[Rfam]
RNA: mir-190 microRNA precursor family
RNA sequence: UUGUCGUUGAGAUAUGUUUGAUAUUCUUGGUUGUAUUUGCUAUCACCCGAGAAUCAAACAUAUUACCCAACGAUGG
Numbered sequence: 001u002u003g004u005c006g007u008u009g010a011g012a013u014a015u016g017u018u019u020g021a022u023a024u025u026c027u028u029g030g031u032u033g034u035a036u037u038u039g040c041u042a043u044c045a046c047c048c049g050a051g052a053a054u055c056a057a058a059c060a061u062a063u064u065a066c067c068c069a070a071c072g073a074u075g076g
Base pairs, nucleotide, nucleotide: 005072006071007070008069009068011064012063013062014061015060016059017058018057019056020055021054022053024051025050029048030047032045033044